[Rfam]
RNA sequence: GGGGGCGUUUUUGGAUUCGACGGGGAUAGUUCGAGCACCUGUAGCGGGUAGUGGGGCUGCGUCCACUUCAUCAACGCGAACGCCAAUUAACUGGCAAACAACAACCUAAACUCGCUUUCGCAGCUUAAUAACCUGUGACGCGGCUUCUACCCUGCAUCGCCCAUGUGCCGGGAUAGGGGCUCAACCUUAGUGGGAUACGCCGUCUAGUCUCCGCCUGGGGCUAGCGGAAGAAGACAAUCAGGCUGACCCGAAGGGAAUCCGGUGACAGGGAGUCUCUAGGGUGACAUCAAAUCUGUCACUACACCCGUAGAAGCCGGUGUGGCGUUAUCUUCGGACACGGGUUCGACUCCCGUCGCCUCCAUAC
Numbered sequence: 001g002g003g004g005g006c007g008u009u010u011u012u013g014g015a016u017u018c019g020a021c022g023g024g025g026a027u028a029g030u031u032c033g034a035g036c037a038c039c040u041g042u043a044g045c046g047g048g049u050a051g052u053g054g055g056g057c058u059g060c061g062u063c064c065a066c067u068u069c070a071u072c073a074a075c076g077c078g079a080a081c082g083c084c085a086a087u088u089a090a091c092u093g094g095c096a097a098a099c100a101a102c103a104a105c106c107u108a109a110a111c112u113c114g115c116u117u118u119c120g121c122a123g124c125u126u127a128a129u130a131a132c133c134u135g136u137g138a139c140g141c142g143g144c145u146u147c148u149a150c151c152c153u154g155c156a157u158c159g160c161c162c163a164u165g166u167g168c169c170g171g172g173a174u175a176g177g178g179g180c181u182c183a184a185c186c187u188u189a190g191u192g193g194g195a196u197a198c199g200c201c202g203u204c205u206a207g208u209c210u211c212c213g214c215c216u217g218g219g220g221c222u223a224g225c226g227g228a229a230g231a232a233g234a235c236a237a238u239c240a241g242g243c244u245g246a247c248c249c250g251a252a253g254g255g256a257a258u259c260c261g262g263u264g265a266c267a268g269g270g271a272g273u274c275u276c277u278a279g280g281g282u283g284a285c286a287u288c289a290a291a292u293c294u295g296u297c298a299c300u301a302c303a304c305c306c307g308u309a310g311a312a313g314c315c316g317g318u319g320u321g322g323c324g325u326u327a328u329c330u331u332c333g334g335a336c337a338c339g340g341g342u343u344c345g346a347c348u349c350c351c352g353u354c355g356c357c358u359c360c361a362u363a364c
Base pairs, nucleotide, nucleotide: 001360002359003358004357005356006355007354021333022332023331024330025329026328027327028326029325030324035320036319037318038317039316041314042313045307046306047305048304049303050067051066052065053064054063058078059077060076061075062074116140118138119137120136121135122134123133143180144179145178146177147176148175150172151171152170154168155167156166157165160194161193162192163191164190200227201226202225204224205223206222207221208220213243214242215241216240217239246282247281248280249279251277253275254274255273258271259270260269262299263298264297265296268292337353338352339351340350341349
This 364-nucleotide sequence from Paenibacillus flagellatus belongs to the Rfam family "transfer-messenger RNA". The source organism's lineage runs through Bacteria, Bacillota, Bacilli, Caryophanales and Paenibacillus. The match comes from Rfam's covariance-model search (181 bits). From the family's description: Bacterial tmRNA, also known as 10Sa RNA or SsrA, is named for its dual tRNA and mRNA-like properties.